Shown here is a 173-nucleotide RNA sequence, a member of the family "malK-I RNA".
RNA sequence: UAAAAUGGAUUGCGCCUACUCCACUAAAAUAGACGCUGUUCAUUAAAAAAGGAGGAAAAACCCGUUAGGUUCACGGUGCGGCAGAGUGGAGACCUGUCGUAACGCGCAGCGCCAAAGGCGUGCGCGAGAGCAUUUGCGCGGAGGUGCUGUGCUCAGAGCCAAAUGUAAUGGCA
Numbered sequence: 001u002a003a004a005a006u007g008g009a010u011u012g013c014g015c016c017u018a019c020u021c022c023a024c025u026a027a028a029a030u031a032g033a034c035g036c037u038g039u040u041c042a043u044u045a046a047a048a049a050a051g052g053a054g055g056a057a058a059a060a061c062c063c064g065u066u067a068g069g070u071u072c073a074c075g076g077u078g079c080g081g082c083a084g085a086g087u088g089g090a091g092a093c094c095u096g097u098c099g100u101a102a103c104g105c106g107c108a109g110c111g112c113c114a115a116a117g118g119c120g121u122g123c124g125c126g127a128g129a130g131c132a133u134u135u136g137c138g139c140g141g142a143g144g145u146g147c148u149g150u151g152c153u154c155a156g157a158g159c160c161a162a163a164u165g166u167a168a169u170g171g172c173a
Stems, first nucleotide, its partner, number of pairs: 007041004012036003016032003062076004066162001068160005077101008086093002104125005110120003128154006137146003